[Rfam]
Shown here is an 86-nucleotide sequence from Branchiostoma floridae, a member of the family "mir-2060 microRNA precursor family". The match comes from Rfam's covariance-model search (64 bits). Its family is annotated with miRNA-mediated post-transcriptional gene silencing and RISC complex in the Gene Ontology.
RNA sequence: GUAUGUAUGUGUGUGGAUGGUGUUCAGCACCAAGGGCAGAUAUGUGUGUGUAUAGUGUUCAGCACCAAGGGCAGGCAUAUGAUAGU
Numbered sequence: 001g002u003a004u005g006u007a008u009g010u011g012u013g014u015g016g017a018u019g020g021u022g023u024u025c026a027g028c029a030c031c032a033a034g035g036g037c038a039g040a041u042a043u044g045u046g047u048g049u050g051u052a053u054a055g056u057g058u059u060c061a062g063c064a065c066c067a068a069g070g071g072c073a074g075g076c077a078u079a080u081g082a083u084a085g086u
Stems, first nucleotide, its partner, number of pairs: 004077003008073003018067007026059005032053001034047001036045003